[Rfam]
RNA sequence: UCUCAUUAGUCGGGGAGCGUUUUCGCUGAGAUCACCAAAGUGGUGAGACCCGUUGAACCUGAUUCAGUUAGCACUGGCGUAGGGAACUGAUAGACACCGCAC
Numbered sequence: 001u002c003u004c005a006u007u008a009g010u011c012g013g014g015g016a017g018c019g020u021u022u023u024c025g026c027u028g029a030g031a032u033c034a035c036c037a038a039a040g041u042g043g044u045g046a047g048a049c050c051c052g053u054u055g056a057a058c059c060u061g062a063u064u065c066a067g068u069u070a071g072c073a074c075u076g077g078c079g080u081a082g083g084g085a086a087c088u089g090a091u092a093g094a095c096a097c098c099g100c101a102c
Base pairs, nucleotide, nucleotide: 006090007089008088009087010086011052012051013050014049017026018025019024033045034044035043036042037041058083059082060081061080064077065076066075067074